RNA: epsC RNA
Organism: Pontibacillus yanchengensis
RNA sequence: AGGUGAUGUCUCCUAACCUCUAUCAACGGAGGCACUCGGCCACACUGUGGGUGCAGCACAAGCUGGACACCUUAGACGCAAGUCGUCACCGGUGGGGUGUGAGGUAGGGUUUAAUGCCCU
Numbered sequence: 001a002g003g004u005g006a007u008g009u010c011u012c013c014u015a016a017c018c019u020c021u022a023u024c025a026a027c028g029g030a031g032g033c034a035c036u037c038g039g040c041c042a043c044a045c046u047g048u049g050g051g052u053g054c055a056g057c058a059c060a061a062g063c064u065g066g067a068c069a070c071c072u073u074a075g076a077c078g079c080a081a082g083u084c085g086u087c088a089c090c091g092g093u094g095g096g097g098u099g100u101g102a103g104g105u106a107g108g109g110u111u112u113a114a115u116g117c118c119c120u
Base pairs, nucleotide, nucleotide: 001019002018003017004016007034008033009032010031011030012029013028035103036102037101038100039098040097041096043094044093045092046091049072050071051070052069053068054065055064056063075087076086077085078084106120107119108118109117110116